[Rfam]
Nucleotides: 123
Base pairs, nucleotide, nucleotide: 002122003121004120061087062086063085064084065083066082
Number, partner (000 for none) and nucleotide at each position: 001000u002122a003121u004120c005000g006000a007000u008000g009000a010000u011000g012000a013000u014000a015000a016000a017000c018000a019000u020000a021000a022000g023000g024000c025000u026000u027000g028000u029000u030000u031000c032000u033000c034000a035000a036000a037000a038000a039000c040000a041000u042000u043000c044000g045000c046000a047000g048000a049000u050000g051000c052000c053000g054000a055000c056000u057000a058000a059000g060000a061087g062086c063085u064084u065083u066082c067000g068000c069000c070000u071000u072000u073000g074000c075000g076000g077000g078000g079000c080000u081000u082066g083065a084064g085063a086062g087061c088000u089000a090000a091000u092000g093000c094000u095000g096000c097000u098000u099000u100000a101000u102000c103000c104000u105000u106000c107000c108000u109000u110000g111000g112000a113000u114000g115000u116000c117000u118000g119000a120004g121003a122002u123000c